[Rfam]
RNA sequence: AGUUUUACGAAUCCGUGUUGAGAUUUCGUCAGACACAAACCGAUUUGGGCUGAUCAGACUUCCAAGAUAAGUGAAGUU
Numbered sequence: 001a002g003u004u005u006u007a008c009g010a011a012u013c014c015g016u017g018u019u020g021a022g023a024u025u026u027c028g029u030c031a032g033a034c035a036c037a038a039a040c041c042g043a044u045u046u047g048g049g050c051u052g053a054u055c056a057g058a059c060u061u062c063c064a065a066g067a068u069a070a071g072u073g074a075a076g077u078u
Base pairs, nucleotide, nucleotide: 002077003076004075005074006073008071011068012067013066016064017063020061021060022059024058025057026056028054029053030052
The record is a 78-nucleotide sequence from Schistosoma mattheei, which matches "mir-3492 microRNA precursor family" in Rfam. The organism belongs to Schistosoma, within Eukaryota. Gene Ontology terms of the family: RISC complex and miRNA-mediated post-transcriptional gene silencing. The family's consensus secondary structure was predicted with RNAalifold.